[Rfam]
RNA: Group II catalytic intron D1-D4-2
RNA sequence: GAGAGUAGGUCUCUCGCAAUCGCUUUGCAGGAAGAGGUUGCAAACCGGUGUAUGCUGCUUUCUCCCGAAAGGGUUAAGGUAGUGAACGAUACAUUUAAAAGGCAGUGAUGAACUGUCAGGU
Numbered sequence: 001g002a003g004a005g006u007a008g009g010u011c012u013c014u015c016g017c018a019a020u021c022g023c024u025u026u027g028c029a030g031g032a033a034g035a036g037g038u039u040g041c042a043a044a045c046c047g048g049u050g051u052a053u054g055c056u057g058c059u060u061u062c063u064c065c066c067g068a069a070a071g072g073g074u075u076a077a078g079g080u081a082g083u084g085a086a087c088g089a090u091a092c093a094u095u096u097a098a099a100a101g102g103c104a105g106u107g108a109u110g111a112a113c114u115g116u117c118a119g120g121u
Stems, first nucleotide, its partner, number of pairs: 001015005016041006023034004046120001048094006054083002057080003061076001063073002101117006